Nucleotides: 081
Stems, first nucleotide, its partner, number of pairs: 003053003007049006015041002017069005026037004059075004
Number, partner (000 for none) and nucleotide at each position: 001000g002000a003053g004052u005051u006000a007049u008048c009047a010046c011045a012044u013000g014000a015041c016040u017069g018068g019067c020066g021065g022000a023000a024000u025000u026037g027036u028035g029034g030000g031000u032000c033000a034029c035028c036027a037026c038000g039000a040016g041015g042000g043000a044012g045011u046010g047009u048008g049007a050000a051005a052004a053003u054000u055000u056000a057000a058000a059075a060074g061073u062072c063000g064000a065021c066020c067019g068018c069017c070000u071000g072062g073061g074060c075059u076000g077000c078000g079000u080000c081000c
A member of the RNA family "ZMP/ZTP riboswitch aptamer (pfl RNA motif)" from Sedimentibacter saalensis, 81 nucleotides long. The organism belongs to Sedimentibacter, within Bacteria. The match comes from Rfam's covariance-model search (64 bits). Pairs were carried over by alignment from the consensus structure, which is taken from published work.